[Rfam]
RNA sequence: UUAUUGAUACUUAAAGUAUCUCGUAUAUUUUCGGGAAUAUGGCCCGAAAGUUUCUACCGAGUGACCAUAAUAAUCACUCGACUACGAGGUAAAAGAGUACCUAG
Numbered sequence: 001u002u003a004u005u006g007a008u009a010c011u012u013a014a015a016g017u018a019u020c021u022c023g024u025a026u027a028u029u030u031u032c033g034g035g036a037a038u039a040u041g042g043c044c045c046g047a048a049a050g051u052u053u054c055u056a057c058c059g060a061g062u063g064a065c066c067a068u069a070a071u072a073a074u075c076a077c078u079c080g081a082c083u084a085c086g087a088g089g090u091a092a093a094a095g096a097g098u099a100c101c102u103a104g
Stems, first nucleotide, its partner, number of pairs: 018090008029049007058080007

A member of the RNA family "Purine riboswitch aptamer" from Natranaerobius trueperi, 104 nucleotides long. The base pairs follow the family's consensus structure, which is taken from published work. The source organism's lineage runs through Bacteria, Bacillati, Clostridia, Natranaerobiaceae and Natranaerobius.